[Rfam]
RNA sequence: UAUUCUCCUCCAUUCAUCACGGAUCGUCGGGCACGUACCUGCCCGUGAAGGGAAGGCU
Number, nucleotide and partner (000 for none) at each position: 001u000002a000003u000004u000005c000006u000007c000008c000009u000010c052011c051012a000013u049014u048015c047016a046017u000018c000019a000020c000021g000022g000023a000024u000025c000026g000027u000028c045029g044030g043031g042032c041033a040034c000035g000036u000037a000038c000039c000040u033041g032042c031043c030044c029045g028046u016047g015048a014049a013050g000051g011052g010053a000054a000055g000056g000057c000058u000
A member of the RNA family "msiK RNA" from Zafaria cholistanensis, 58 nucleotides long. The match comes from Rfam's covariance-model search (54 bits). The source organism's lineage runs through Bacteria, Bacillati, Actinomycetota, Micrococcaceae and Zafaria. Rfam classes the family as a cis-regulatory element.